Shown here is a 60-nucleotide RNA from Papio anubis, a member of the family "U7 small nuclear RNA". Rfam's curators write: Animal histone pre-mRNAs are spliced by a different mechanism than nuclear pre-mRNAs and self-splicing introns. This processing involves the U7 snRNP, which contains only one RNA species: U7. The 5' end of U7 RNA is thought to base-pair to a conserved spacer element downstream of the cleavage site in histone pre-mRNA. This family contains a number of annotated U7 pseudogenes.
[Rfam]
RNA sequence: UAGUGUUACAGCUUUUAGAAUUUGUCUAGCAGGCUUUCCGGUCUUCACUGGAAAGCCCGU
Number, nucleotide and partner (000 for none) at each position: 001u000002a000003g000004u000005g000006u000007u000008a000009c000010a000011g000012c000013u000014u000015u000016u000017a000018g000019a000020a000021u000022u000023u000024g000025u000026c000027u000028a000029g000030c000031a000032g057033g056034c055035u054036u053037u052038c051039c050040g049041g048042u047043c000044u000045u000046c000047a042048c041049u040050g039051g038052a037053a036054a035055g034056c033057c032058c000059g000060u000

The family has 49 seed sequences and 10,439 matches in Rfam 15.1. The literature on the family includes a 1987 paper in Science by Mowry and Steitz, "Identification of the human U7 snRNP as one of several factors involved in the 3' end maturation of histone premessenger RNA's".